[Rfam]
RNA: Glycine riboswitch aptamer
RNA sequence: GUGAUCAGUUCGGGAGAAUCGGCAACCGCCGAUGCCGAAGGAGCAACCGCCCCGGAAACUCUCAGGCAAAAGGGACCGAACGGAUCAG
Numbered sequence: 001g002u003g004a005u006c007a008g009u010u011c012g013g014g015a016g017a018a019u020c021g022g023c024a025a026c027c028g029c030c031g032a033u034g035c036c037g038a039a040g041g042a043g044c045a046a047c048c049g050c051c052c053c054g055g056a057a058a059c060u061c062u063c064a065g066g067c068a069a070a071a072g073g074g075a076c077c078g079a080a081c082g083g084a085u086c087a088g
Base pairs, nucleotide, nucleotide: 006083008081009080010079011078012077013076019032020031021030022029034067035066036065037063038062041061042060043059047055048054
Dot-bracket structure: .....(.((((((.....((((......)))).(((((..(((...((.....))...))))).)))........)))))).).....